[Rfam]
RNA sequence: ACUCGGGCACGAUCCCGCCCGGGGCGCGCACAGUUAACUACGGUGCGGGGCCUCGUAGGGCGGGAACCGACCCGCAGUAGUACCUGAGGGA
Dot-bracket structure: (((((((.....(((((((((((((........................))))))...))))))).....)))).))).............
Numbered sequence: 001a002c003u004c005g006g007g008c009a010c011g012a013u014c015c016c017g018c019c020c021g022g023g024g025c026g027c028g029c030a031c032a033g034u035u036a037a038c039u040a041c042g043g044u045g046c047g048g049g050g051c052c053u054c055g056u057a058g059g060g061c062g063g064g065a066a067c068c069g070a071c072c073c074g075c076a077g078u079a080g081u082a083c084c085u086g087a088g089g090g091a
Stems, first nucleotide, its partner, number of pairs: 001078003004074004013065007020055006